The family of this 87-nucleotide sequence from Oligella urethralis is "Glycine riboswitch aptamer". Its family is annotated with glycine biosynthetic process in the Gene Ontology. The organism belongs to Oligella urethralis, within Bacteria.
[Rfam]
RNA sequence: AUGCUCUGUCGCAGGAGAGAGGUUUUCCACACCCGCCGAAGGCGCAAACUCCCAUAAACGCUCAGGCUCAUGUACUGCACAUCGCAA
Numbered sequence: 001a002u003g004c005u006c007u008g009u010c011g012c013a014g015g016a017g018a019g020a021g022g023u024u025u026u027c028c029a030c031a032c033c034c035g036c037c038g039a040a041g042g043c044g045c046a047a048a049c050u051c052c053c054a055u056a057a058a059c060g061c062u063c064a065g066g067c068u069c070a071u072g073u074a075c076u077g078c079a080c081a082u083c084g085c086a087a
Base pairs, nucleotide, nucleotide: 007081008080009079011078012077013076014075021033022032023031035067036066037065038063039062042061043060044059048055
Dot-bracket structure: ......(((.((((......(((.......))).(((((..(((...(......)...))))).))).......)))))))......